Shown here is a 78-nucleotide sequence from Prunus yedoensis, a member of the family "MIR473 microRNA precursor family". Taxonomically the source falls in Prunus yedoensis (Eukaryota, Spermatophyta, fabids, Rosales). On this family, see Lu et al., Plant Cell 2005: "Novel and mechanical stress-responsive MicroRNAs in Populus trichocarpa that are absent from Arabidopsis". A search with the family's covariance model found it, with a score of 59 bits.
RNA sequence: GUUGCUCACUCUCCCUCAAAGGCUUCUAGCAAUGUCAGAAAUGACGAACUCGAAGCCAUUAGGGAGAGUGAACAAAAA
Numbered sequence: 001g002u003u004g005c006u007c008a009c010u011c012u013c014c015c016u017c018a019a020a021g022g023c024u025u026c027u028a029g030c031a032a033u034g035u036c037a038g039a040a041a042u043g044a045c046g047a048a049c050u051c052g053a054a055g056c057c058a059u060u061a062g063g064g065a066g067a068g069u070g071a072a073c074a075a076a077a078a
Stems, first nucleotide, its partner, number of pairs: 006071010018060002021057006